[Rfam]
RNA sequence: UUAUCACCUUAACAGCACUCUAAUAAGUGGCCUCUAGUCCACGGUGGUGUAAGAACCAUGGACUAGAGGCCACUUAUUAGAGUGCUGUUAAGGUGAUAA
Numbered sequence: 001u002u003a004u005c006a007c008c009u010u011a012a013c014a015g016c017a018c019u020c021u022a023a024u025a026a027g028u029g030g031c032c033u034c035u036a037g038u039c040c041a042c043g044g045u046g047g048u049g050u051a052a053g054a055a056c057c058a059u060g061g062a063c064u065a066g067a068g069g070c071c072a073c074u075u076a077u078u079a080g081a082g083u084g085c086u087g088u089u090a091a092g093g094u095g096a097u098a099a
Base pairs, nucleotide, nucleotide: 001099002098003097005095006094007093010092011089012088013087014086015085016084017083018082021079023077024076025075026074027073028072029071030070031069032068033067034066035065036064037063038062039061040060041059